[Rfam]
RNA: MIR8024 microRNA precursor family
RNA sequence: UUGAAGGAUUGGAAGACUUCAACUUGCAUACUUGAAGAAUUUAAAGAUUUCAACUUGCAAACUUGGCUGAAUUUCAAGACUUCAAAA
Numbered sequence: 001u002u003g004a005a006g007g008a009u010u011g012g013a014a015g016a017c018u019u020c021a022a023c024u025u026g027c028a029u030a031c032u033u034g035a036a037g038a039a040u041u042u043a044a045a046g047a048u049u050u051c052a053a054c055u056u057g058c059a060a061a062c063u064u065g066g067c068u069g070a071a072u073u074u075c076a077a078g079a080c081u082u083c084a085a086a087a
Base pairs, nucleotide, nucleotide: 001085002084003083004082005081006080009077010076011075012074013073014072017069019066020065021064025059026058027057028056032053033052034051035050036049037048